Shown here is a 107-nucleotide RNA sequence from Prunus persica, a member of the family "MIR6274 microRNA precursor family". A search with the family's covariance model found it, with a score of 92 bits. Rfam links the family to the GO terms miRNA-mediated post-transcriptional gene silencing and RISC complex.
[Rfam]
Nucleotides: 107
Stems, first nucleotide, its partner, number of pairs: 002106002005103001012095009022085013036071015
Number, partner (000 for none) and nucleotide at each position: 001000g002106g003105a004000u005103a006000g007000u008000a009000c010000u011000u012095u013094u014093u015092u016091g017090c018089u019088a020087u021000u022085u023084u024083u025082g026081g027080c028079c029078a030077a031076u032075a033074a034073u035000a036071c037070a038069a039068u040067g041066a042065u043064a044063u045062g046061u047060g048059g049058a050057a051000a052000a053000g054000u055000u056000a057050u058049u059048u060047u061046a062045c063044a064043u065042g066041u067040c068039a069038u070037u071036g072000c073034g074033u075032u076031a077030u078029u079028g080027g081026u082025c083024g084023g085022a086000a087020a088019u089018a090017g091016c092015a093014a094013a095012a096000a097000g098000u099000g100000u101000u102000u103005u104000c105003u106002c107000c